[Rfam]
This 107-nucleotide RNA sequence belongs to the Rfam family "SAM (S-adenosyl methionine) riboswitch aptamer". About the family: SAM-IV is a mRNA element that regulates gene expression via direct sensing of S-adenosylmethionine (SAM or AdoMet). Clan: SAM clan. Its family is annotated with regulation of gene expression and S-adenosylmethionine metabolic process in the Gene Ontology.

RNA sequence: GGUCAUGAGUGCCAGCGAUAAGCCCCGGCUUGCUGGCCGGCAACCCUCCGACCGCGGUGGGGUGCUCCGGGUGAAGACCAGGCCUGAUAGUCAGGCAAGCGCGGGUC
Number, nucleotide and partner (000 for none) at each position: 001g079002g078003u077004c076005a000006u000007g000008a000009g038010u000011g037012c036013c035014a034015g033016c032017g000018a000019u000020a000021a030022g029023c000024c000025c000026c000027g000028g000029c022030u021031u000032g016033c015034u014035g013036g012037c011038c009039g066040g065041c064042a000043a000044c062045c061046c060047u000048c057049c056050g000051a000052c000053c000054g000055c000056g049057g048058u000059g000060g046061g045062g044063u000064g041065c040066u039067c000068c000069g000070g000071g000072u000073g000074a000075a000076g004077a003078c002079c001080a000081g000082g096083c095084c094085u093086g092087a091088u000089a000090g000091u087092c086093a085094g084095g083096c082097a000098a000099g000100c000101g000102c000103g000104g000105g000106u000107c000